[Rfam]
Shown here is a 225-nucleotide RNA from Burkholderia multivorans, a member of the family "permuted transfer-messenger RNA".
The family's consensus secondary structure is taken from published work.

RNA sequence: CGUUGUACAUCCUCUGGAUGGGGCGUGUCUCGGAAGCGGGUUCAAAUCCCGCCGCUUCCACCAACUGCGCAUUGUGUCAGUGUGCAGCUGAUGGGGGCGACAGGUUUCGACGGGGCAAGGAACUGAAAGCGGCAACGCGGGCAGGCGACUACCCGGCGAGCUUCGGCUUGUGAACAGAGCAAAACCAUAAAUGCAAACGACGAAGUCUUUGCCCAGGCUGCGUAA
Numbered sequence: 001c002g003u004u005g006u007a008c009a010u011c012c013u014c015u016g017g018a019u020g021g022g023g024c025g026u027g028u029c030u031c032g033g034a035a036g037c038g039g040g041u042u043c044a045a046a047u048c049c050c051g052c053c054g055c056u057u058c059c060a061c062c063a064a065c066u067g068c069g070c071a072u073u074g075u076g077u078c079a080g081u082g083u084g085c086a087g088c089u090g091a092u093g094g095g096g097g098c099g100a101c102a103g104g105u106u107u108c109g110a111c112g113g114g115g116c117a118a119g120g121a122a123c124u125g126a127a128a129g130c131g132g133c134a135a136c137g138c139g140g141g142c143a144g145g146c147g148a149c150u151a152c153c154c155g156g157c158g159a160g161c162u163u164c165g166g167c168u169u170g171u172g173a174a175c176a177g178a179g180c181a182a183a184a185c186c187a188u189a190a191a192u193g194c195a196a197a198c199g200a201c202g203a204a205g206u207c208u209u210u211g212c213c214c215a216g217g218c219u220g221c222g223u224a225a
Stems, first nucleotide, its partner, number of pairs: 001137005015126001017124001026117003030113003036052005053099007138170004
Dot-bracket structure: (((((.........(.(........(((.(((...(((((.......)))))(((((((.................................)))))))...........))).)))......).)......)))))((((.........................)))).......................................................

Rfam's curators write: Bacterial tmRNA, also known as 10Sa RNA or SsrA, is named for its dual tRNA and mRNA-like properties. It is annotated as a non-coding RNA gene.